[Rfam]
RNA sequence: CUCUGUGCCAGAUGGUUCAGGGCAAAGGAG
Numbered sequence: 001c002u003c004u005g006u007g008c009c010a011g012a013u014g015g016u017u018c019a020g021g022g023c024a025a026a027g028g029a030g
Base pairs, nucleotide, nucleotide: 001022002021003020004019005018007016008015009014
The record is a 30-nucleotide RNA from Salinicoccus luteus, which matches "L31-Firmicutes ribosomal protein leader" in Rfam. By type it is a cis-regulatory leader. Clan: Ribosomal Protein L31 Leader clan. The base pairs follow the family's consensus structure, which is taken from published work.